[Rfam]
RNA: c-di-GMP-I riboswitch aptamer
Organism: Acetobacterium paludosum
RNA sequence: CGGCGAUAAAGGCAAACUUGUUGAAAGACAGGGACGCAAAACUAGAGGGCCUGUAAAAUGGCAGCCAGUUUCCGAA
Numbered sequence: 001c002g003g004c005g006a007u008a009a010a011g012g013c014a015a016a017c018u019u020g021u022u023g024a025a026a027g028a029c030a031g032g033g034a035c036g037c038a039a040a041a042c043u044a045g046a047g048g049g050c051c052u053g054u055a056a057a058a059u060g061g062c063a064g065c066c067a068g069u070u071u072c073c074g075a076a
Stems, first nucleotide, its partner, number of pairs: 012037002017032006040070004047066002049062003